A member of the RNA family "LOOT RNA", 124 nucleotides long.
RNA sequence: AACCUAACCCAUUUCUAUUGCAGGGGUGGUAUGGUCUUAAAUCGCGUAAACAAUACUGAUCCCGUCGUUCAGGUUCGUUUACGCGUCAUGCAGGGAAACUUGUAUGGGACCCUUCAAAAGGUCU
Numbered sequence: 001a002a003c004c005u006a007a008c009c010c011a012u013u014u015c016u017a018u019u020g021c022a023g024g025g026g027u028g029g030u031a032u033g034g035u036c037u038u039a040a041a042u043c044g045c046g047u048a049a050a051c052a053a054u055a056c057u058g059a060u061c062c063c064g065u066c067g068u069u070c071a072g073g074u075u076c077g078u079u080u081a082c083g084c085g086u087c088a089u090g091c092a093g094g095g096a097a098a099c100u101u102g103u104a105u106g107g108g109a110c111c112c113u114u115c116a117a118a119a120g121g122u123c124u
Stems, first nucleotide, its partner, number of pairs: 002035003009029007043085009053075001056072004087106008107124005
It is one of the family's seed sequences. The family's RNA type in Rfam is small RNA.